[Rfam]
RNA sequence: AGACGGGUCCGGGCCCCUCUGGCGGCCGAGGCGUCGGCCGCGAUGUCGGACCCCUUCG
Numbered sequence: 001a002g003a004c005g006g007g008u009c010c011g012g013g014c015c016c017c018u019c020u021g022g023c024g025g026c027c028g029a030g031g032c033g034u035c036g037g038c039c040g041c042g043a044u045g046u047c048g049g050a051c052c053c054c055u056u057c058g
Base pairs, nucleotide, nucleotide: 006052007051008050009049010048011047012046022041023040024039025038026037027036028035029034

About this RNA:
This 58-nucleotide RNA from Methylorubrum rhodinum belongs to the Rfam family "terC RNA". A search with the family's covariance model found it, with a score of 69 bits. The organism belongs to Methylorubrum, within Bacteria. It is annotated as a cis-regulatory element.